[Rfam]
RNA sequence: UUGUGACCGUUGUUACGGUCAAUUUCAUUCAGAAGCUAUGACCGUAAUCCCGUUCACAACA
Number, nucleotide and partner (000 for none) at each position: 001u059002u058003g057004u056005g055006a054007c000008c052009g051010u000011u000012g048013u047014u046015a045016c044017g043018g042019u041020c040021a039022a000023u000024u000025u000026c000027a000028u000029u000030c000031a000032g000033a000034a000035g000036c000037u000038a000039u021040g020041a019042c018043c017044g016045u015046a014047a013048u012049c000050c000051c009052g008053u000054u006055c005056a004057c003058a002059a001060c000061a000
RNA: mir-360 microRNA precursor family